[Rfam]
RNA sequence: UGGUGCUCUCAUAUGUAACAGCAACUCCAUGUGGACUACACUGACUUCCAGUGGAGAUGCUGUUACUUUUGAUAGCCAC
Numbered sequence: 001u002g003g004u005g006c007u008c009u010c011a012u013a014u015g016u017a018a019c020a021g022c023a024a025c026u027c028c029a030u031g032u033g034g035a036c037u038a039c040a041c042u043g044a045c046u047u048c049c050a051g052u053g054g055a056g057a058u059g060c061u062g063u064u065a066c067u068u069u070u071g072a073u074a075g076c077c078a079c
Stems, first nucleotide, its partner, number of pairs: 009072003015066008025056006032050003
This 79-nucleotide RNA sequence from Strigops habroptila belongs to the Rfam family "mir-194 microRNA precursor family". Taxonomically the source falls in Strigops (Eukaryota, Opisthokonta, Amniota, Australaves). For this family Rfam cites "New microRNAs from mouse and human" (Lagos-Quintana et al., RNA, 2003). Gene Ontology terms of the family: miRNA-mediated post-transcriptional gene silencing and RISC complex. A search with the family's covariance model found it, with a score of 84 bits. The base pairs follow the family's consensus structure, which was predicted with RNAalifold.